[Rfam]
RNA sequence: CCUUAGGGUAGAGGCGCUGUAAUUAAUAGUAUUUAUUCCUAGUCGACGGACGUUUGAAGAUUAAAGAAAGGAAUUAUAGCCGAAGAAAAUGAUUUGGUAAAAUUAUUUUCUGGCUUUGCAUAUAAUAUAUGCAAAGUUGUCACUUGAGUUUAUGUGUUGUUUAUGCAUAACCUAAUUAUACACAAAUUGUAUAAUUCCAUUUUGGAAAGUGGAGAGCUACAAAGGGU
Numbered sequence: 001c002c003u004u005a006g007g008g009u010a011g012a013g014g015c016g017c018u019g020u021a022a023u024u025a026a027u028a029g030u031a032u033u034u035a036u037u038c039c040u041a042g043u044c045g046a047c048g049g050a051c052g053u054u055u056g057a058a059g060a061u062u063a064a065a066g067a068a069a070g071g072a073a074u075u076a077u078a079g080c081c082g083a084a085g086a087a088a089a090u091g092a093u094u095u096g097g098u099a100a101a102a103u104u105a106u107u108u109u110c111u112g113g114c115u116u117u118g119c120a121u122a123u124a125a126u127a128u129a130u131g132c133a134a135a136g137u138u139g140u141c142a143c144u145u146g147a148g149u150u151u152a153u154g155u156g157u158u159g160u161u162u163a164u165g166c167a168u169a170a171c172c173u174a175a176u177u178a179u180a181c182a183c184a185a186a187u188u189g190u191a192u193a194a195u196u197c198c199a200u201u202u203u204g205g206a207a208a209g210u211g212g213a214g215a216g217c218u219a220c221a222a223a224g225g226g227u
Stems, first nucleotide, its partner, number of pairs: 008220004016080009032065004037060002084111012112138011140212006